[Rfam]
Notes: The family of this 75-nucleotide RNA from Streptomyces bingchenggensis is "ASpks TB sRNA". The match comes from Rfam's covariance-model search (72 bits). Pairs were carried over by alignment from the consensus structure, which is taken from published work.

RNA sequence: CUUGAUGGACCCGAGCCGGACGGGCCGGUCCUCGGAGCGUGCCUUGCCGUACGUGGCCAGUAGCGCCUGUGCCUC
Numbered sequence: 001c002u003u004g005a006u007g008g009a010c011c012c013g014a015g016c017c018g019g020a021c022g023g024g025c026c027g028g029u030c031c032u033c034g035g036a037g038c039g040u041g042c043c044u045u046g047c048c049g050u051a052c053g054u055g056g057c058c059a060g061u062a063g064c065g066c067c068u069g070u071g072c073c074u075c
Base pairs, nucleotide, nucleotide: 015025016024017023031071033069038065039064043060044059047056048055049054